A member of the RNA family "Acido-Lenti-1 RNA" from Lacipirellula parvula, 46 nucleotides long.
Nucleotides: 046
Base pairs, nucleotide, nucleotide: 001020002019003018004017005016006015007014008013033045034044035043036042037041
Number, partner (000 for none) and nucleotide at each position: 001020c002019c003018a004017g005016g006015g007014g008013c009000u010000c011000a012000c013008g014007c015006c016005c017004c018003u019002g020001g021000c022000u023000a024000u025000a026000a027000a028000c029000u030000c031000u032000c033045g034044c035043c036042c037041c038000g039000u040000u041037g042036g043035g044034g045033c046000u

A search with the family's covariance model found it, with a score of 46 bits. The family's consensus secondary structure is taken from published work.